[Rfam]
Nucleotides: 108
Stems, first nucleotide, its partner, number of pairs: 002103006012092004017088001019086002025068004
Number, partner (000 for none) and nucleotide at each position: 001000g002103g003102g004101u005100a006099g007098g008000c009000a010000u011000a012092g013091c014090c015089a016000g017088g018000u019086g020085g021000u022000u023000a024000c025068u026067u027066c028065g029000u030000u031000a032000a033000c034000a035000c036000u037000a038000u039000a040000c041000a042000g043000u044000c045000g046000a047000c048000u049000a050000u051000c052000u053000g054000u055000a056000u057000c058000c059000c060000a061000g062000g063000a064000u065028c066027g067026g068025g069000u070000c071000u072000u073000u074000g075000g076000u077000g078000a079000a080000c081000a082000u083000a084000a085020c086019c087000c088017c089015u090014g091013g092012c093000g094000c095000a096000g097000c098007c099006c100005u101004a102003c103002c104000u105000u106000u107000u108000g

Rfam assigns this 108-nucleotide RNA from Holothuria leucospilota to the family "Vault RNA". The base pairs follow the family's consensus structure, which is taken from published work. The match comes from Rfam's covariance-model search (42 bits). It is annotated as a non-coding RNA gene.